[Rfam]
This 30-nucleotide RNA from Olpidium bornovanus belongs to the Rfam family "Iron response element II". About the family: IRE, TFRC, SLC40A1, SDHB, SLC11A2, CDC42BPA, ACO2, ALAS2_H.SAPIENS, CDC14A, EPAS1, ALAS2, qoxD, Hao1, NDUFS1, transferrin, Aconitate. For this family Rfam cites "A cytosolic protein binds to structural elements within the iron regulatory region of the transferrin receptor mRNA" (Koeller et al., Proc Natl Acad Sci U S A, 1989). Its family is annotated with response to iron ion in the Gene Ontology.
RNA sequence: UCAUCAUCUGAGGCAGUGUCUCAAUGAUGA
Numbered sequence: 001u002c003a004u005c006a007u008c009u010g011a012g013g014c015a016g017u018g019u020c021u022c023a024a025u026g027a028u029g030a
Base pairs, nucleotide, nucleotide: 001030002029003028004027005026006025007024009023010022011021013020014018